[Rfam]
raiA RNA: a 210-nucleotide sequence.

RNA sequence: CGGAAUCGGGUCUGUGGUUGCAAGUCGAUGCCAGUCGCAGGCGAAACGAUCCACAUAAGCGGAAAAAAUUCCGUGAGCAUGGUGCGGCUUAGAGGUAAGUCCAACCGGCGGCGCAGCCGUCGAGAGGGGCAGUAGUGGGGAGCGCGAACGCUUAGGAGCGAACCCUCCGGUUGGCGAGUGUGGGGGCAAAGACCAGGUCAGCCGAUGACG
Numbered sequence: 001c002g003g004a005a006u007c008g009g010g011u012c013u014g015u016g017g018u019u020g021c022a023a024g025u026c027g028a029u030g031c032c033a034g035u036c037g038c039a040g041g042c043g044a045a046a047c048g049a050u051c052c053a054c055a056u057a058a059g060c061g062g063a064a065a066a067a068a069u070u071c072c073g074u075g076a077g078c079a080u081g082g083u084g085c086g087g088c089u090u091a092g093a094g095g096u097a098a099g100u101c102c103a104a105c106c107g108g109c110g111g112c113g114c115a116g117c118c119g120u121c122g123a124g125a126g127g128g129g130c131a132g133u134a135g136u137g138g139g140g141a142g143c144g145c146g147a148a149c150g151c152u153u154a155g156g157a158g159c160g161a162a163c164c165c166u167c168c169g170g171u172u173g174g175c176g177a178g179u180g181u182g183g184g185g186g187c188a189a190a191g192a193c194c195a196g197g198u199c200a201g202c203c204g205a206u207g208a209c210g
Stems, first nucleotide, its partner, number of pairs: 001210002005206005012201003015195005028181003031041001033089007050082002058074001061071003080188001101174005106122005126167004135159002141152003
Dot-bracket structure: ((..(((((..((((((((........((([.(((((((.]........((......(..(((.....)))..).....[)))))))))...........((((((((((.......)))))...((((.....((....(((......))).....))....))))..)))))....)))......]..)))))...))))))))..))

The base pairs follow the family's consensus structure, which is taken from published work.